[Rfam]
Mammalian CPEB3 ribozyme: a 75-nucleotide RNA from Crocodylus porosus.
RNA sequence: AUUACAAAUUUGAGGCCAUAGUAGAAGUACGCACGGUGCAACCUGUCAGAUUCCAAUGAAUCUGCAAAUUCUGCU
Numbered sequence: 001a002u003u004a005c006a007a008a009u010u011u012g013a014g015g016c017c018a019u020a021g022u023a024g025a026a027g028u029a030c031g032c033a034c035g036g037u038g039c040a041a042c043c044u045g046u047c048a049g050a051u052u053c054c055a056a057u058g059a060a061u062c063u064g065c066a067a068a069u070u071c072u073g074c075u
Stems, first nucleotide, its partner, number of pairs: 014043002020075007027039003047064007
Taxonomically the source falls in Crocodylus (Eukaryota, Opisthokonta, Deuterostomia, Tetrapoda).